[Rfam]
RNA: pan motif
Organism: Paenibacillus albiflavus
RNA sequence: GAGGCGAUAUCUAAUCAUUAGAAUUGCACUCAAUAUUAGUUUUUAUGAACCGUUAGACAACUGGAUAAUCUAAUAUUGUUAUGUUGGAUUCUGCUCUAAGCCAAAAGGAAUGAGACAGAAGG
Numbered sequence: 001g002a003g004g005c006g007a008u009a010u011c012u013a014a015u016c017a018u019u020a021g022a023a024u025u026g027c028a029c030u031c032a033a034u035a036u037u038a039g040u041u042u043u044u045a046u047g048a049a050c051c052g053u054u055a056g057a058c059a060a061c062u063g064g065a066u067a068a069u070c071u072a073a074u075a076u077u078g079u080u081a082u083g084u085u086g087g088a089u090u091c092u093g094c095u096c097u098a099a100g101c102c103a104a105a106a107g108g109a110a111u112g113a114g115a116c117a118g119a120a121g122g
Base pairs, nucleotide, nucleotide: 001031002030003029004027005026006025007024008023010022011021012020013019091118092117093116094114095113096112101108102107